This 127-nucleotide RNA from Dasypus novemcinctus belongs to the Rfam family "Small nucleolar RNA SNORA28". The base pairs follow the family's consensus structure, which was predicted with RNAfold. Rfam's curators put it in the seed alignment. Rfam classes the family as an H/ACA-box small nucleolar RNA. NCBI's taxonomy places the organism under Eukaryota, Vertebrata, Theria, Eutheria, Dasypus. The family has 26 seed sequences and 922 matches in Rfam 15.1. Its family is annotated with nucleolus and RNA processing in the Gene Ontology. About the family: ACA28 is a member of the H/ACA class of snoRNA that guide the sites of modification of uridines to pseudouridines. For this family Rfam cites "RNomics: an experimental approach that identifies 201 candidates for novel, small, non-messenger RNAs in mouse" (Huttenhofer et al., EMBO J, 2001). Its Rfam clan is "SNORA28 clan".

RNA sequence: AAGCAAUGCUCUGUGCAGAUGAUUAAAACCAUCUGGCACAAUUUCUGCUUGCUAUAACAAGAAAGUCUGACCUAUUCUGGUGUUCUCUCUUUGACGAGACAAGCCCCAUUAUAUAGACUACACCAGC
Numbered sequence: 001a002a003g004c005a006a007u008g009c010u011c012u013g014u015g016c017a018g019a020u021g022a023u024u025a026a027a028a029c030c031a032u033c034u035g036g037c038a039c040a041a042u043u044u045c046u047g048c049u050u051g052c053u054a055u056a057a058c059a060a061g062a063a064a065g066u067c068u069g070a071c072c073u074a075u076u077c078u079g080g081u082g083u084u085c086u087c088u089c090u091u092u093g094a095c096g097a098g099a100c101a102a103g104c105c106c107c108a109u110u111a112u113a114u115a116g117a118c119u120a121c122a123c124c125a126g127c
Stems, first nucleotide, its partner, number of pairs: 009047001012040004016035006064119006073113003078108001079105003086099004